This 300-nucleotide RNA sequence from Lachnellula cervina belongs to the Rfam family "Group I catalytic intron". Group I catalytic introns are large self-splicing ribozymes. They catalyse their own excision from mRNA, tRNA and rRNA precursors in a wide range of organisms. The family's consensus secondary structure is taken from published work. The match comes from Rfam's covariance-model search (98 bits). The organism belongs to Lachnellula, within Eukaryota.

RNA sequence: UAAGAGAAUUGAGAAAUCUCUUAUGGCUAUACUGUGGGUGUGAACCACCUGCUACAAACCAUCAAAUUGCGGGAAAGCCCUAAAGCAAUUUCAACCAAGCAGACGUGGCAACACAGUCUGUGGCACAGGUAAUGACUCGUGGUAUGGUAAAAUCUAAAUUGAUCUACGAAAGUAAAUGGGUAAUCCGCAGCCAAGCAGCUUCUAUUCAUAGAAGGUGUGCAGUUCAUCGACUAAAUGUUGGUUGGCAUUAUCAGGAUAAUAGUGCUUAAGAUAUAGUCAACCCCUAUCCGAAAGGAUACA
Numbered sequence: 001u002a003a004g005a006g007a008a009u010u011g012a013g014a015a016a017u018c019u020c021u022u023a024u025g026g027c028u029a030u031a032c033u034g035u036g037g038g039u040g041u042g043a044a045c046c047a048c049c050u051g052c053u054a055c056a057a058a059c060c061a062u063c064a065a066a067u068u069g070c071g072g073g074a075a076a077g078c079c080c081u082a083a084a085g086c087a088a089u090u091u092c093a094a095c096c097a098a099g100c101a102g103a104c105g106u107g108g109c110a111a112c113a114c115a116g117u118c119u120g121u122g123g124c125a126c127a128g129g130u131a132a133u134g135a136c137u138c139g140u141g142g143u144a145u146g147g148u149a150a151a152a153u154c155u156a157a158a159u160u161g162a163u164c165u166a167c168g169a170a171a172g173u174a175a176a177u178g179g180g181u182a183a184u185c186c187g188c189a190g191c192c193a194a195g196c197a198g199c200u201u202c203u204a205u206u207c208a209u210a211g212a213a214g215g216u217g218u219g220c221a222g223u224u225c226a227u228c229g230a231c232u233a234a235a236u237g238u239u240g241g242u243u244g245g246c247a248u249u250a251u252c253a254g255g256a257u258a259a260u261a262g263u264g265c266u267u268a269a270g271a272u273a274u275a276g277u278c279a280a281c282c283c284c285u286a287u288c289c290g291a292a293a294g295g296a297u298a299c300a
Stems, first nucleotide, its partner, number of pairs: 011018002057243005063237002068189006078180003190223002195218003201212004227279001229278005245265007253257001285298005